The family of this 139-nucleotide RNA from Drosophila busckii is "Small nucleolar RNA psi28S-3316". The family's RNA type in Rfam is H/ACA-box small nucleolar RNA. Gene Ontology terms of the family: RNA processing and nucleolus. psi28S-3316 is a member of the H/ACA class of snoRNA. This family is responsible for guiding the modification of uridine 3316 in Drosophila 28S rRNA to pseudouridine.

RNA sequence: GGCACCUAAAAGCGUUUUCUUGGUCGCUCUGAUGAAACGCGCUUGAAAAUCGUAGCUGUGUGCUAAAGCAAUUGUUUGCAGUAGCAAAAGUCUUGAUUUCUUUCAAUAAUUCAAGCACAUAUAGAACUGUACAACAAGC
Numbered sequence: 001g002g003c004a005c006c007u008a009a010a011a012g013c014g015u016u017u018u019c020u021u022g023g024u025c026g027c028u029c030u031g032a033u034g035a036a037a038c039g040c041g042c043u044u045g046a047a048a049a050u051c052g053u054a055g056c057u058g059u060g061u062g063c064u065a066a067a068g069c070a071a072u073u074g075u076u077u078g079c080a081g082u083a084g085c086a087a088a089a090g091u092c093u094u095g096a097u098u099u100c101u102u103u104c105a106a107u108a109a110u111u112c113a114a115g116c117a118c119a120u121a122u123a124g125a126a127c128u129g130u131a132c133a134a135c136a137a138g139c
Stems, first nucleotide, its partner, number of pairs: 001064005006058001012053003015049005022040001026038001075133001077131005082125001086122001088120001090118001092115003096111001098109002